Plastid-ndhJ 3UTR RNA: a 57-nucleotide sequence from Olea europaea.
The family's RNA type in Rfam is cis-regulatory element.
It scores 56 bits against the family's covariance model.
The base pairs follow the family's consensus structure, which was predicted with LocARNA.
Lineage of the source: Eukaryota > Spermatophyta > Pentapetalae > lamiids > Olea europaea.
From the family's description: Plastid ndhJ is a non-coding RNA (ncRNA) present in plastids. It was identified as a short stem-loop motif in the 3 prime untranslate region (3UTR) of ndhJ gene.
[Rfam]
RNA sequence: UCAUGAACUUUGUAAUGCGCACAUUACUUAGAUCGGUUCUAGAAAGUUAUGUUGAGA
Numbered sequence: 001u002c003a004u005g006a007a008c009u010u011u012g013u014a015a016u017g018c019g020c021a022c023a024u025u026a027c028u029u030a031g032a033u034c035g036g037u038u039c040u041a042g043a044a045a046g047u048u049a050u051g052u053u054g055a056g057a
Base pairs, nucleotide, nucleotide: 019037020036023033024032025031